Overview
The family of this 507-nucleotide RNA sequence from Streptosporangium becharense is "Saccharopolyspora sRNA 350". Lineage of the source: Bacteria > Bacillati > Actinomycetota > Actinomycetes > Streptosporangium. A reference for the family is Liu et al. (2013), "Prediction and characterization of small non-coding RNAs related to secondary metabolites in Saccharopolyspora erythraea", PLoS One. The family's consensus secondary structure was predicted with RNAfold.
RNA sequence: UUGGCGGUGAACUCCCAGUCGCGGUCGGGGCCGACGAGCGUCUCGUCGCCGAAGUGGUCGCCGUGGGCCAGCACCUUGAGGAUGAUCUGGUCGCCGUACGGCCCCGUGCCGAUCUUGUUGACCUUGCCGUGCGCGAUGAGCACCACCUCGUCGGCCGGACGCCCGCUCUCGGCGAGCACGUCCCCGGCGCGGAACUCACGCUGGACGAAGUGGCCGGCCAGGGCGGUGAGCACGUCGGUGUCGUCGAACUCGCGCAGGACGGGCAGCUCGCACAGCUCGGCGGGGAUGACCGCCGCCUGCGACCCCGUGGUGGUGAAGCUCACCCGGCCGUCGCCGACCGUGUAGGUCAGACGGCGGUUGACCCGGUAGGUGCCGCCGGACACCUGCACCCAGGGGAGCAUCCGCAGCAGCCACCGCGAGGAGAUCUCCUGCAUCUGGGGCGUCGACUUGGUCGUCGUCGCGAGGUUCCGCGCGGCGUCCGUGCCCAGGCUCAGCCGCGACCGGCCG
Numbered sequence: 001u002u003g004g005c006g007g008u009g010a011a012c013u014c015c016c017a018g019u020c021g022c023g024g025u026c027g028g029g030g031c032c033g034a035c036g037a038g039c040g041u042c043u044c045g046u047c048g049c050c051g052a053a054g055u056g057g058u059c060g061c062c063g064u065g066g067g068c069c070a071g072c073a074c075c076u077u078g079a080g081g082a083u084g085a086u087c088u089g090g091u092c093g094c095c096g097u098a099c100g101g102c103c104c105c106g107u108g109c110c111g112a113u114c115u116u117g118u119u120g121a122c123c124u125u126g127c128c129g130u131g132c133g134c135g136a137u138g139a140g141c142a143c144c145a146c147c148u149c150g151u152c153g154g155c156c157g158g159a160c161g162c163c164c165g166c167u168c169u170c171g172g173c174g175a176g177c178a179c180g181u182c183c184c185c186g187g188c189g190c191g192g193a194a195c196u197c198a199c200g201c202u203g204g205a206c207g208a209a210g211u212g213g214c215c216g217g218c219c220a221g222g223g224c225g226g227u228g229a230g231c232a233c234g235u236c237g238g239u240g241u242c243g244u245c246g247a248a249c250u251c252g253c254g255c256a257g258g259a260c261g262g263g264c265a266g267c268u269c270g271c272a273c274a275g276c277u278c279g280g281c282g283g284g285g286a287u288g289a290c291c292g293c294c295g296c297c298u299g300c301g302a303c304c305c306c307g308u309g310g311u312g313g314u315g316a317a318g319c320u321c322a323c324c325c326g327g328c329c330g331u332c333g334c335c336g337a338c339c340g341u342g343u344a345g346g347u348c349a350g351a352c353g354g355c356g357g358u359u360g361a362c363c364c365g366g367u368a369g370g371u372g373c374c375g376c377c378g379g380a381c382a383c384c385u386g387c388a389c390c391c392a393g394g395g396g397a398g399c400a401u402c403c404g405c406a407g408c409a410g411c412c413a414c415c416g417c418g419a420g421g422a423g424a425u426c427u428c429c430u431g432c433a434u435c436u437g438g439g440g441c442g443u444c445g446a447c448u449u450g451g452u453c454g455u456c457g458u459c460g461c462g463a464g465g466u467u468c469c470g471c472g473c474g475g476c477g478u479c480c481g482u483g484c485c486c487a488g489g490c491u492c493a494g495c496c497g498c499g500a501c502c503g504g505c506c507g
Base pairs, nucleotide, nucleotide: 006390007389008388009387011385018328019327021325025322027320028319032315035313037311039309040308041307045303046302047301048300049299051297054233055232058229059228060227061226062225063224064223066110067109068108080099082097083096084095086093118221119220120219122217123216127212130209131206134203135202138199140197149191150190154188155187156186157185158184161177164174165173166172234294236292237291240290241289242288243287244286245285249283250282253279254278256277257276262269329342330341331340352378353377354376355375356374357373361371362370363369391431392430393429394428395427396426397425399423401421403418404417405416407415437476440473442471443470445468446467447465448464449463451461452460478507480503481502484499486497488495